The record is a 52-nucleotide sequence from Tupaia belangeri, which matches "mir-374 microRNA precursor family" in Rfam. On this family, see Lui et al., Cancer Res 2007: "Patterns of known and novel small RNAs in human cervical cancer". Its family is annotated with RISC complex and miRNA-mediated post-transcriptional gene silencing in the Gene Ontology.
[Rfam]
RNA sequence: UUAUAAUACAACCUGAUAAGUGUUACAACACUUAUCAGAUUGUAUUGUCAUU
Numbered sequence: 001u002u003a004u005a006a007u008a009c010a011a012c013c014u015g016a017u018a019a020g021u022g023u024u025a026c027a028a029c030a031c032u033u034a035u036c037a038g039a040u041u042g043u044a045u046u047g048u049c050a051u052u
Base pairs, nucleotide, nucleotide: 003048004047005046006045007044008043009042010041011040013038014037015036017034018033019032020031021030022029023028